A member of the RNA family "Plastid-psbl-rps4 3UTR RNA", 53 nucleotides long. By type it is a cis-regulatory element. Rfam describes the family as follows. Plastid psbl-rps4-psbC is a non-coding RNA (ncRNA) present in plastids. It is compose of two short stem-loops in tandem in the terminal 3 prime untranslate region (3UTR) mostly in psbl and rps4 seed plants genes. The base pairs follow the family's consensus structure, which was predicted with LocARNA. For this family Rfam cites "Retrograde signaling in plants: A critical review focusing on the GUN pathway and beyond" (Richter et al., Plant Commun, 2023). The sequence is in the family's curated seed alignment.

[Rfam]
RNA sequence: CGGAGAGAGAGGGGUUCGAACCCUCGGUACGAAUUAUUCGUACAACGGAUUAG
Dot-bracket structure: ........(((((.......))))).((((((.....))))))..........